Rfam assigns this 112-nucleotide sequence from Sanguibacter suaedae to the family "SAM (S-adenosyl methionine) riboswitch aptamer". The match comes from Rfam's covariance-model search (70 bits). SAM-IV is a mRNA element that regulates gene expression via direct sensing of S-adenosylmethionine (SAM or AdoMet). SAM-IV riboswitches share conserved nucleotide positions with the previously described SAM-I riboswitches sequence analysis and molecular recognition experiments suggest that SAM-I and SAM-IV riboswitches share similar ligand binding sites, but have different scaffolds. The family is grouped with related families in Rfam's "SAM clan".
Nucleotides: 112
Base pairs, nucleotide, nucleotide: 001080002079003078004077009040012038013037014036015035016034021032022031041066042065043064046062047061048060050058051057083101084100085099086098087097088096089095
Number, partner (000 for none) and nucleotide at each position: 001080g002079g003078u004077c005000a006000c007000g008000a009040g010000g011000c012038c013037c014036a015035g016034c017000g018000a019000c020000a021032a022031g023000c024000c025000c026000c027000u028000c029000a030000g031022c032021u033000u034016g035015c036014u037013g038012g039000c040009c041066g042065g043064c044000a045000a046062c047061c048060g049000c050058g051057c052000u053000c054000c055000g056000c057051g058050c059000a060048c061047g062046g063000u064043g065042c066041c067000c068000c069000u070000g071000a072000g073000g074000g075000a076000a077004g078003a079002c080001c081000c082000g083101c084100u085099c086098g087097c088096g089095c090000a091000a092000c093000c094000a095089g096088c097087g098086c099085g100084a101083g102000a103000a104000g105000a106000g107000c108000g109000a110000c111000g112000a